This 134-nucleotide sequence from Striga hermonthica belongs to the Rfam family "Small nucleolar RNA U19". Taxonomically the source falls in Striga (Eukaryota, Viridiplantae, Spermatophyta, Magnoliopsida).
RNA sequence: UGUCGGCUUAGUUAGGAGGCCAAAAUCAAUACUACGGCUCCAUCAAUUUUCAUUCUUGGAUACGAAAGUUGAGGCCUUUUGAGUCGACACUUGCUGAUAUUUGUCUUGUGUCGGCCAAGCAGCCUCGAACAUCA
Numbered sequence: 001u002g003u004c005g006g007c008u009u010a011g012u013u014a015g016g017a018g019g020c021c022a023a024a025a026u027c028a029a030u031a032c033u034a035c036g037g038c039u040c041c042a043u044c045a046a047u048u049u050u051c052a053u054u055c056u057u058g059g060a061u062a063c064g065a066a067a068g069u070u071g072a073g074g075c076c077u078u079u080u081g082a083g084u085c086g087a088c089a090c091u092u093g094c095u096g097a098u099a100u101u102u103g104u105c106u107u108g109u110g111u112c113g114g115c116c117a118a119g120c121a122g123c124c125u126c127g128a129a130c131a132u133c134a
Base pairs, nucleotide, nucleotide: 005020007018008017009016043059044058045057046056069128070127071126072125073124074123075122078119079118080117081116083115084114085113086112087111088110089109090108
For this family Rfam cites "Experimental RNomics: identification of 140 candidates for small non-messenger RNAs in the plant Arabidopsis thaliana" (Marker et al., Curr Biol, 2002). Gene Ontology terms of the family: RNA processing and nucleolus. A search with the family's covariance model found it, with a score of 63 bits.